[Rfam]
The record is a 112-nucleotide RNA sequence from Nomascus leucogenys, which matches "Y RNA" in Rfam. Y RNAs are components of the Ro ribonucleoprotein particle (Ro RNP), in association with Ro60 and La proteins. The Y RNAs and Ro60 and La proteins are well conserved, but the function of the Ro RNP is not known. The source organism's lineage runs through Eukaryota, Bilateria, Deuterostomia, Catarrhini and Nomascus. It scores 47 bits against the family's covariance model.
RNA sequence: GGCUGGUUCGAAGGUAGUGUGUUAUCUCAGUUGAUUGCUCACUGUCAGUUACAGGUUGAGCUCCUUGUUCUACUCUUUCCCUCUUCUUGCCACUGCACUUGACUAGUUUAAA
Numbered sequence: 001g002g003c004u005g006g007u008u009c010g011a012a013g014g015u016a017g018u019g020u021g022u023u024a025u026c027u028c029a030g031u032u033g034a035u036u037g038c039u040c041a042c043u044g045u046c047a048g049u050u051a052c053a054g055g056u057u058g059a060g061c062u063c064c065u066u067g068u069u070c071u072a073c074u075c076u077u078u079c080c081c082u083c084u085u086c087u088u089g090c091c092a093c094u095g096c097a098c099u100u101g102a103c104u105a106g107u108u109u110a111a112a
Base pairs, nucleotide, nucleotide: 001108002107003106004105005104006103007102008101010100011099014096015095017090018089019088021086044073045072047071048070